[Rfam]
RNA sequence: GAAGUCGGCCAGACCGCCGCUGGUGCAAGCAUCGAAAGGUGGCACUGGAGGAAGGUCCGGACUGCACAGGGCAGCGUAGGAGGUAAUACCUCUCCACCGCGAGGUGAGGAUCAGAGCAACAGAGACGAGCCGAUUCAGUUCGGGUGAAACGGGCAAUCUCUACGCGCAGCAACACCAAAUAGGCACACAUUGAGCGGCGUGGCUUGCCAUGCCGCCCUACCCCUGGCCCGGGGGCUGUGUGCGGGUAGGUGGCACCGAGCCGUCCUGGCGACAGGCGGCCCAGAUGAAUGGCGGUCACGGCCGGGCGCUGAAAGGCGACCGGCCGCACAGAAUCCGGCCUAUCGGCCAACUUCACAC
Numbered sequence: 001g002a003a004g005u006c007g008g009c010c011a012g013a014c015c016g017c018c019g020c021u022g023g024u025g026c027a028a029g030c031a032u033c034g035a036a037a038g039g040u041g042g043c044a045c046u047g048g049a050g051g052a053a054g055g056u057c058c059g060g061a062c063u064g065c066a067c068a069g070g071g072c073a074g075c076g077u078a079g080g081a082g083g084u085a086a087u088a089c090c091u092c093u094c095c096a097c098c099g100c101g102a103g104g105u106g107a108g109g110a111u112c113a114g115a116g117c118a119a120c121a122g123a124g125a126c127g128a129g130c131c132g133a134u135u136c137a138g139u140u141c142g143g144g145u146g147a148a149a150c151g152g153g154c155a156a157u158c159u160c161u162a163c164g165c166g167c168a169g170c171a172a173c174a175c176c177a178a179a180u181a182g183g184c185a186c187a188c189a190u191u192g193a194g195c196g197g198c199g200u201g202g203c204u205u206g207c208c209a210u211g212c213c214g215c216c217c218u219a220c221c222c223c224u225g226g227c228c229c230g231g232g233g234g235c236u237g238u239g240u241g242c243g244g245g246u247a248g249g250u251g252g253c254a255c256c257g258a259g260c261c262g263u264c265c266u267g268g269c270g271a272c273a274g275g276c277g278g279c280c281c282a283g284a285u286g287a288a289u290g291g292c293g294g295u296c297a298c299g300g301c302c303g304g305g306c307g308c309u310g311a312a313a314g315g316c317g318a319c320c321g322g323c324c325g326c327a328c329a330g331a332a333u334c335c336g337g338c339c340u341a342u343c344g345g346c347c348a349a350c351u352u353c354a355c356a357c
Stems, first nucleotide, its partner, number of pairs: 001353005007347004011342001012296007020048007028040001053340003057337005062169004069229004074165005079093005094108001095106004109160002114158002116154002130143004173251004183242006220234005259279004264275004
Source information: The family of this 357-nucleotide sequence from Rubrivivax sp. is "Bacterial RNase P class A". The match comes from Rfam's covariance-model search (200 bits). Pairs were carried over by alignment from the consensus structure, which is taken from published work. The source organism's lineage runs through Bacteria, Pseudomonadota, Betaproteobacteria, Sphaerotilaceae and Rubrivivax.